This 215-nucleotide sequence from Brevundimonas sp. Leaf363 belongs to the Rfam family "permuted transfer-messenger RNA". The base pairs follow the family's consensus structure, which is taken from published work. NCBI's taxonomy places the organism under Bacteria, Pseudomonadota, Caulobacterales, Caulobacteraceae, Brevundimonas. About the family: Bacterial tmRNA, also known as 10Sa RNA or SsrA, is named for its dual tRNA and mRNA-like properties. Its role is to liberate the mRNA from a stalled ribosome. To accomplish this part of the tmRNA is used as a reading frame that ends in a translation stop signal. The broken mRNA is replaced in the ribosome by the tmRNA and translation of the tmRNA leads to addition of a proteolysis tag to the incomplete protein enabling recognition by a protease. Rfam links the family to the GO term RNA catabolic process.
RNA sequence: GGCGAUAAAUGCGCUCAUAAUAAGCGGACCGGACCCGGGUGCGAUUCCCGGCGGCUCCACCAUUUCUCCCCGCGUUAUCGGCGGAGGCUUAUGGGGCCGACUAGCAUCGACGGACGUGUAAAGGGGAUUGCUUUCGCUCGUCCUGGCCCACCGUAUCGGGCCUUUAUCUAACUGCGAACGAUAACUUCGCUGGAGAAGUCCGCCUCGCCGCGUAA
Numbered sequence: 001g002g003c004g005a006u007a008a009a010u011g012c013g014c015u016c017a018u019a020a021u022a023a024g025c026g027g028a029c030c031g032g033a034c035c036c037g038g039g040u041g042c043g044a045u046u047c048c049c050g051g052c053g054g055c056u057c058c059a060c061c062a063u064u065u066c067u068c069c070c071c072g073c074g075u076u077a078u079c080g081g082c083g084g085a086g087g088c089u090u091a092u093g094g095g096g097c098c099g100a101c102u103a104g105c106a107u108c109g110a111c112g113g114a115c116g117u118g119u120a121a122a123g124g125g126g127a128u129u130g131c132u133u134u135c136g137c138u139c140g141u142c143c144u145g146g147c148c149c150a151c152c153g154u155a156u157c158g159g160g161c162c163u164u165u166a167u168c169u170a171a172c173u174g175c176g177a178a179c180g181a182u183a184a185c186u187u188c189g190c191u192g193g194a195g196a197a198g199u200c201c202g203c204c205u206c207g208c209c210g211c212g213u214a215a
Base pairs, nucleotide, nucleotide: 001138002137003136004135005134014126015125016124025116026115029113030112031111035051036050037049038048039047052099053098054097055096056095057094058093139153140152
Dot-bracket structure: (((((........(((........((..(((...(((((.......)))))(((((((..................................)))))))...........))).)).......))).......)))))((...........))..............................................................